The family of this 74-nucleotide RNA from Pan troglodytes is "mir-1288 microRNA precursor family".
Lineage of the source: Eukaryota > Eumetazoa > Teleostomi > Homininae > Pan.
The sequence is in the family's curated seed alignment.
RNA sequence: AGGGUGUUGGUCAGCAGAUCAGGACUGCAACUCACCAUAGUGGUGGACUGCCCUGAUCUGGAGACCACUGCCUU
Numbered sequence: 001a002g003g004g005u006g007u008u009g010g011u012c013a014g015c016a017g018a019u020c021a022g023g024a025c026u027g028c029a030a031c032u033c034a035c036c037a038u039a040g041u042g043g044u045g046g047a048c049u050g051c052c053c054u055g056a057u058c059u060g061g062a063g064a065c066c067a068c069u070g071c072c073u074u
Stems, first nucleotide, its partner, number of pairs: 002073005008067005015060009027051003032046006
Dot-bracket structure: .(((((.(((((..(((((((((...(((..((((((...))))))..))))))))))))..))))).))))).